[Rfam]
Shown here is a 31-nucleotide RNA from Diabrotica balteata, a member of the family "S4-Flavobacteria ribosomal protein leader".
Clan: Ribosomal Protein S4 Leader clan.
The match comes from Rfam's covariance-model search (36 bits).
The source organism's lineage runs through Eukaryota, Protostomia, Aparaglossata, Chrysomeloidea and Diabrotica.
RNA sequence: UAUUAACAAAGGAUAUCCUUAAUUUUUGAUA
Numbered sequence: 001u002a003u004u005a006a007c008a009a010a011g012g013a014u015a016u017c018c019u020u021a022a023u024u025u026u027u028g029a030u031a
Stems, first nucleotide, its partner, number of pairs: 001031006008025001009020004